[Rfam]
RNA: Ribosomal protein L20 leader
RNA sequence: UAAGUCAAGCAGAAGCCAUCCGCUUCUCACCUUACGGCGAUUGUCGUUAAGGUAUCUUCUGGUCCUGAGCCAAGUGUUUGCUCGCGAUUGUUUGGAAGACGGGUGGUAUACAUCCGUCUUUUUUGUUAUUG
Numbered sequence: 001u002a003a004g005u006c007a008a009g010c011a012g013a014a015g016c017c018a019u020c021c022g023c024u025u026c027u028c029a030c031c032u033u034a035c036g037g038c039g040a041u042u043g044u045c046g047u048u049a050a051g052g053u054a055u056c057u058u059c060u061g062g063u064c065c066u067g068a069g070c071c072a073a074g075u076g077u078u079u080g081c082u083c084g085c086g087a088u089u090g091u092u093u094g095g096a097a098g099a100c101g102g103g104u105g106g107u108a109u110a111c112a113u114c115c116g117u118c119u120u121u122u123u124u125g126u127u128a129u130u131g
Base pairs, nucleotide, nucleotide: 011027012026013025014024015023016022029053030052031051035046036045037044038043098118099117100116101115102114103113104112105111